The family of this 113-nucleotide sequence from Pseudomonas pohangensis is "Pseudomon-groES RNA".
The source organism's lineage runs through Bacteria, Pseudomonadota, Gammaproteobacteria, Pseudomonadaceae and Pseudomonas.
The match comes from Rfam's covariance-model search (69 bits).
Rfam classes the family as a cis-regulatory element.

RNA sequence: CUACUGAUCACCGCAAGGUGCUUGCCGUUCAGGCAAACAGACUUCGCAGUGUGCGUUGCAUGCUGCAACCGGCGCCGCCGGACUCAAGAAAACCGUCAGUGCCGGGCACUGGC
Dot-bracket structure: .........(((....)))..(((((.....))))).........((((((((.....))))))))..((((.....)))).............((((((.......))))))
Pairs were carried over by alignment from the consensus structure, which is taken from published work.